[Rfam]
RNA sequence: UGAGUGGUUUAGGUAGUUUCAUGUUGUUGGGCUGAAGUUUAUACUCCCACAACACGAAACUGUCUUAAUUGCCCC
Numbered sequence: 001u002g003a004g005u006g007g008u009u010u011a012g013g014u015a016g017u018u019u020c021a022u023g024u025u026g027u028u029g030g031g032c033u034g035a036a037g038u039u040u041a042u043a044c045u046c047c048c049a050c051a052a053c054a055c056g057a058a059a060c061u062g063u064c065u066u067a068a069u070u071g072c073c074c075c
Stems, first nucleotide, its partner, number of pairs: 004072006011065009022054006029047003
mir-196 microRNA precursor family: a 75-nucleotide sequence from Synaphobranchus kaupii.
It scores 68 bits against the family's covariance model.
A reference for the family is Lagos-Quintana et al. (2003), "New microRNAs from mouse and human", RNA.
Gene Ontology terms of the family: gene silencing by miRNA and RISC complex.